[Rfam]
RNA sequence: CCGAUAAAACAAAAACAACAAUGAAUAAGCAAUUGACAAAUACAUAUUGGUGGUGGCGCCCGUUACAACUCCAGCAGUCGUAAGGGAGCAGCGCUCGUAUGUAUAUAUGUCAUAGAAUAUAAAUACUAAAGGAAAAAAGGAAGAGCCCUGCC
Numbered sequence: 001c002c003g004a005u006a007a008a009a010c011a012a013a014a015a016c017a018a019c020a021a022u023g024a025a026u027a028a029g030c031a032a033u034u035g036a037c038a039a040a041u042a043c044a045u046a047u048u049g050g051u052g053g054u055g056g057c058g059c060c061c062g063u064u065a066c067a068a069c070u071c072c073a074g075c076a077g078u079c080g081u082a083a084g085g086g087a088g089c090a091g092c093g094c095u096c097g098u099a100u101g102u103a104u105a106u107a108u109g110u111c112a113u114a115g116a117a118u119a120u121a122a123a124u125a126c127u128a129a130a131g132g133a134a135a136a137a138a139g140g141a142a143g144a145g146c147c148c149u150g151c152c
Stems, first nucleotide, its partner, number of pairs: 036108001038106001040104008049095004056089002059086003066080001068078003

Background:
A member of the RNA family "Bacteroidete tryptophan peptide leader RNA" from Mediterranea sp. An20, 152 nucleotides long. A search with the family's covariance model found it, with a score of 89 bits. Rfam links the family to the GO terms S-adenosylmethionine metabolic process and regulation of gene expression. Lineage of the source: Bacteria > Pseudomonadati > Bacteroidota > Bacteroidia > Mediterranea. The family's RNA type in Rfam is cis-regulatory leader.